[Rfam]
Notes
Shown here is a 132-nucleotide RNA from Clostridium pasteurianum, a member of the family "PyrR binding site". The family's RNA type in Rfam is cis-regulatory element. The family's consensus secondary structure is taken from published work.
RNA sequence: ACGACCUUUAAAUUUGGUCCAGAGAGGCUGAAAAGGUAAGAUUGUAUAUAAUUGUGUAAAAGCAGCAUUUUUAUGUAUAGCUUUAUUUCGUAUGCAACGAGCCUUCUGCCAUAGUAGAAGGCUCUUAUUUUU
Numbered sequence: 001a002c003g004a005c006c007u008u009u010a011a012a013u014u015u016g017g018u019c020c021a022g023a024g025a026g027g028c029u030g031a032a033a034a035g036g037u038a039a040g041a042u043u044g045u046a047u048a049u050a051a052u053u054g055u056g057u058a059a060a061a062g063c064a065g066c067a068u069u070u071u072u073a074u075g076u077a078u079a080g081c082u083u084u085a086u087u088u089c090g091u092a093u094g095c096a097a098c099g100a101g102c103c104u105u106c107u108g109c110c111a112u113a114g115u116a117g118a119a120g121g122c123u124c125u126u127a128u129u130u131u132u
Stems, first nucleotide, its partner, number of pairs: 004037006014031006045075003048071001050069003055064003097126001099124011
The literature on the family includes a 2001 paper in Nucleic Acids Res by Bonner et al., "Molecular recognition of pyr mRNA by the Bacillus subtilis attenuation regulatory protein PyrR".